[Rfam]
RNA sequence: ACCGCUUAUAAAUGUAUAGAACGCAAGACAGUUCAGCAUUUCCCUGAGUGGUUUAGAAUGAUUAGAAGUACAAUCAAUAAUACGGUUUGUGUAGCUAUGUUGAAAGUCGUUGAGAUUGUAUGGAAUAGGUUAAUCGUAAGACCUUAAGUUGAAAAACUUUAAAAUUAAUCUUAAAAUAAAGGGAAAGUAAUACUUUUUAUUACUUUUGAGUUACGGUGAU
Numbered sequence: 001a002c003c004g005c006u007u008a009u010a011a012a013u014g015u016a017u018a019g020a021a022c023g024c025a026a027g028a029c030a031g032u033u034c035a036g037c038a039u040u041u042c043c044c045u046g047a048g049u050g051g052u053u054u055a056g057a058a059u060g061a062u063u064a065g066a067a068g069u070a071c072a073a074u075c076a077a078u079a080a081u082a083c084g085g086u087u088u089g090u091g092u093a094g095c096u097a098u099g100u101u102g103a104a105a106g107u108c109g110u111u112g113a114g115a116u117u118g119u120a121u122g123g124a125a126u127a128g129g130u131u132a133a134u135c136g137u138a139a140g141a142c143c144u145u146a147a148g149u150u151g152a153a154a155a156a157c158u159u160u161a162a163a164a165u166u167a168a169u170c171u172u173a174a175a176a177u178a179a180a181g182g183g184a185a186a187g188u189a190a191u192a193c194u195u196u197u198u199a200u201u202a203c204u205u206u207u208g209a210g211u212u213a214c215g216g217u218g219a220u
Stems, first nucleotide, its partner, number of pairs: 001052008010041006019034004023029001068121008082110007093101002127144005133217006139165001146159005170210007179201002
The family of this 220-nucleotide RNA is "IS605-orfB-I RNA". Rfam's curators put it in the seed alignment.